The record is a 90-nucleotide RNA sequence from Alpharetrovirus avirousar, which matches "Retrovirus direct repeat 1 (dr1)" in Rfam. Rfam describes the family as follows. This family represents the direct repeat 1 (dr1) element commonly found in the 3' UTR of Avian sarcoma, Rous sarcoma and Avian leukosis viruses (Alpharetroviruses and Avian type C retroviruses). dr1 is required for efficient viral replication and is thought to be involved in genomic RNA packaging although this may not be its only role. On this family, see Aschoff et al., J Virol 1999: "Point mutations in the avian sarcoma/leukosis virus 3' untranslated region result in a packaging defect".
[Rfam]
RNA sequence: UGUAACGGGGCAAGGCUUGACUGAGGGGACUACAGUAUGUAUAGGCGAAAGGCGGGGCUGCGGUUGUACGCGGAUAGGAAUCCCCUCAGG
Numbered sequence: 001u002g003u004a005a006c007g008g009g010g011c012a013a014g015g016c017u018u019g020a021c022u023g024a025g026g027g028g029a030c031u032a033c034a035g036u037a038u039g040u041a042u043a044g045g046c047g048a049a050a051g052g053c054g055g056g057g058c059u060g061c062g063g064u065u066g067u068a069c070g071c072g073g074a075u076a077g078g079a080a081u082c083c084c085c086u087c088a089g090g
Stems, first nucleotide, its partner, number of pairs: 001012003023087007031079001042076002046072002052067004